[Rfam]
RNA sequence: UACCGAGGUUUUCCUCGGCAGUUAACUGCAGCCGGUUUCAAAUUCCUCGACAGUUAACUGCUGAGGGGGCA
Numbered sequence: 001u002a003c004c005g006a007g008g009u010u011u012u013c014c015u016c017g018g019c020a021g022u023u024a025a026c027u028g029c030a031g032c033c034g035g036u037u038u039c040a041a042a043u044u045c046c047u048c049g050a051c052a053g054u055u056a057a058c059u060g061c062u063g064a065g066g067g068g069g070c071a
Stems, first nucleotide, its partner, number of pairs: 012068002015065001016063013

Notes
MIR2629 microRNA precursor family: a 71-nucleotide RNA from Medicago truncatula. A search with the family's covariance model found it, with a score of 65 bits.